[Rfam]
A member of the RNA family "mir-981 microRNA precursor family" from Candidula unifasciata, 82 nucleotides long. The source organism's lineage runs through Eukaryota, Protostomia, Gastropoda, Euthyneura and Candidula. It scores 63 bits against the family's covariance model. Its family is annotated with RISC complex and miRNA-mediated post-transcriptional gene silencing in the Gene Ontology.

RNA sequence: AGGCGUUUACUCGGGUUUCGCGAUGGGCGAACAGUUUGAGCUUGAUGCUGUUCGUUGUCGUCGAAACCUGCCUUAAACGCCG
Numbered sequence: 001a002g003g004c005g006u007u008u009a010c011u012c013g014g015g016u017u018u019c020g021c022g023a024u025g026g027g028c029g030a031a032c033a034g035u036u037u038g039a040g041c042u043u044g045a046u047g048c049u050g051u052u053c054g055u056u057g058u059c060g061u062c063g064a065a066a067c068c069u070g071c072c073u074u075a076a077a078c079g080c081c082g
Base pairs, nucleotide, nucleotide: 002081003080004079005078006077012070013069014068015067016066017065018064019063020062029053030052031051032050033049